The record is a 77-nucleotide RNA sequence from Alligator sinensis, which matches "Mammalian CPEB3 ribozyme" in Rfam.

RNA sequence: GUAGUAAGUCCAAAGGCCACAGCAGAAGCACUCAUGGCACAGCCCUGUCAGGUUCCAGUAAAUUUGCAAAUUCUGCU
Numbered sequence: 001g002u003a004g005u006a007a008g009u010c011c012a013a014a015g016g017c018c019a020c021a022g023c024a025g026a027a028g029c030a031c032u033c034a035u036g037g038c039a040c041a042g043c044c045c046u047g048u049c050a051g052g053u054u055c056c057a058g059u060a061a062a063u064u065u066g067c068a069a070a071u072u073c074u075g076c077u
Stems, first nucleotide, its partner, number of pairs: 015044003021077007028040001049066006